The family of this 98-nucleotide RNA from Brassica rapa is "Small nucleolar RNA snoR27". The family has 6 seed sequences and 649 matches in Rfam 15.1. For this family Rfam cites "Multiple snoRNA gene clusters from Arabidopsis" (Brown et al., RNA, 2001). Gene Ontology terms of the family: nucleolus and RNA processing.
[Rfam]
RNA sequence: AUUGGAUCGAUGAUAUAUUAGUUUAUUAAACUGCGUUAUCUAUCUGCAAAUCUCCUUCAAGGAGUUUGAAGAAACAAUAAAAAGAACCGAGAUCCAGC
Numbered sequence: 001a002u003u004g005g006a007u008c009g010a011u012g013a014u015a016u017a018u019u020a021g022u023u024u025a026u027u028a029a030a031c032u033g034c035g036u037u038a039u040c041u042a043u044c045u046g047c048a049a050a051u052c053u054c055c056u057u058c059a060a061g062g063a064g065u066u067u068g069a070a071g072a073a074a075c076a077a078u079a080a081a082a083a084g085a086a087c088c089g090a091g092a093u094c095c096a097g098c
Stems, first nucleotide, its partner, number of pairs: 002097006
Dot-bracket structure: .((((((....................................................................................)))))).